sraA: a 95-nucleotide RNA from Morganella morganii. Pairs were carried over by alignment from the consensus structure, which was predicted with RNAalifold. On this family, see Argaman et al., Curr Biol 2001: "Novel small RNA-encoding genes in the intergenic regions of Escherichia coli".
RNA sequence: AGAAUAAUCAAUAUAUGGGGAUGCAUUUCUCACAUUCAACACUUUAUUUAGUAAGAAAAGCAAAAUGAGGGAAAAUUCCCUCAUUUAGUUAAUAU
Numbered sequence: 001a002g003a004a005u006a007a008u009c010a011a012u013a014u015a016u017g018g019g020g021a022u023g024c025a026u027u028u029c030u031c032a033c034a035u036u037c038a039a040c041a042c043u044u045u046a047u048u049u050a051g052u053a054a055g056a057a058a059a060g061c062a063a064a065a066u067g068a069g070g071g072a073a074a075a076u077u078c079c080c081u082c083a084u085u086u087a088g089u090u091a092a093u094a095u
Stems, first nucleotide, its partner, number of pairs: 008038001010036003016032005063086010